[Rfam]
RNA sequence: GUCAUACUACGGUGCAACGAGGGAGAAAGUAAACGAUGACCCUAAAGGAACUCUACGUUAAAAUGCAUAUCAAAAUGCAAAAUUGAUCCUGACUUGGGGUUUUUGGCCCUAGGUUUUUUU
Numbered sequence: 001g002u003c004a005u006a007c008u009a010c011g012g013u014g015c016a017a018c019g020a021g022g023g024a025g026a027a028a029g030u031a032a033a034c035g036a037u038g039a040c041c042c043u044a045a046a047g048g049a050a051c052u053c054u055a056c057g058u059u060a061a062a063a064u065g066c067a068u069a070u071c072a073a074a075a076u077g078c079a080a081a082a083u084u085g086a087u088c089c090u091g092a093c094u095u096g097g098g099g100u101u102u103u104u105g106g107c108c109c110u111a112g113g114u115u116u117u118u119u120u
Stems, first nucleotide, its partner, number of pairs: 001040005010035002014030002041048002057071001059069002091115009
A member of the RNA family "Enterobacteria greA leader" from Yersinia pestis, 120 nucleotides long. The family's RNA type in Rfam is cis-regulatory leader. NCBI's taxonomy places the organism under Bacteria, Gammaproteobacteria, Enterobacterales, Yersiniaceae, Yersinia pestis.